[Rfam]
RNA sequence: UUACAUCAUCAGGAGCGAUUUCUUACGAGAAAUCCACCAACCGAGCUUAAAAGCUACGGUGGUUAGUUCCAUUAAACGGAAGAUGUGCCUUGAAAAAGGAAAAAGUGGAACCGCCUG
Numbered sequence: 001u002u003a004c005a006u007c008a009u010c011a012g013g014a015g016c017g018a019u020u021u022c023u024u025a026c027g028a029g030a031a032a033u034c035c036a037c038c039a040a041c042c043g044a045g046c047u048u049a050a051a052a053g054c055u056a057c058g059g060u061g062g063u064u065a066g067u068u069c070c071a072u073u074a075a076a077c078g079g080a081a082g083a084u085g086u087g088c089c090u091u092g093a094a095a096a097a098g099g100a101a102a103a104a105g106u107g108g109a110a111c112c113g114c115c116u117g
Base pairs, nucleotide, nucleotide: 007085008084009083010082015035017034018033019032020031021030022029023028036063037062038061041059042058043057044055045054046053088099089098090097091096
The family of this 117-nucleotide sequence is "SAM-I/IV (S-adenosyl methionine) riboswitch aptamer". On this family, see Weinberg et al., RNA 2008: "The aptamer core of SAM-IV riboswitches mimics the ligand-binding site of SAM-I riboswitches". The family is grouped with related families in Rfam's "SAM clan".